[Rfam]
Shown here is a 38-nucleotide RNA sequence from Facklamia hominis, a member of the family "Selenocysteine insertion sequence 4". The family has 24 seed sequences and 436 matches in Rfam 15.1.
RNA sequence: GGGACCUGUACACGUUGCGGAGCAACAAUGGUCAAAGA
Numbered sequence: 001g002g003g004a005c006c007u008g009u010a011c012a013c014g015u016u017g018c019g020g021a022g023c024a025a026c027a028a029u030g031g032u033c034a035a036a037g038a
Stems, first nucleotide, its partner, number of pairs: 005031002014026005

The family's RNA type in Rfam is cis-regulatory element.
The match comes from Rfam's covariance-model search (54 bits).